[Rfam]
RNA sequence: AGACUCUCAAAGUGGUUGUGGAAUGUCAUAUAAAAUUUUUACUUCUCAUAUCACAGCCAGCUUUGAAGAGCUAGA
Numbered sequence: 001a002g003a004c005u006c007u008c009a010a011a012g013u014g015g016u017u018g019u020g021g022a023a024u025g026u027c028a029u030a031u032a033a034a035a036u037u038u039u040u041a042c043u044u045c046u047c048a049u050a051u052c053a054c055a056g057c058c059a060g061c062u063u064u065g066a067a068g069a070g071c072u073a074g075a
Stems, first nucleotide, its partner, number of pairs: 005069002007066006013059009024050003